[Rfam]
RNA sequence: UGGCCGGUAUCCUUCGGGAACCGGACCGCCGGAUGGAUCGGUUUUUUUGAAUCAUAUGGGAAUCCGCUUGGAUCCGCAAGGACCGAGACGGGGGC
Numbered sequence: 001u002g003g004c005c006g007g008u009a010u011c012c013u014u015c016g017g018g019a020a021c022c023g024g025a026c027c028g029c030c031g032g033a034u035g036g037a038u039c040g041g042u043u044u045u046u047u048u049g050a051a052u053c054a055u056a057u058g059g060g061a062a063u064c065c066g067c068u069u070g071g072a073u074c075c076g077c078a079a080g081g082a083c084c085g086a087g088a089c090g091g092g093g094g095c
Stems, first nucleotide, its partner, number of pairs: 001028003004024005010019002064091003067087005073082003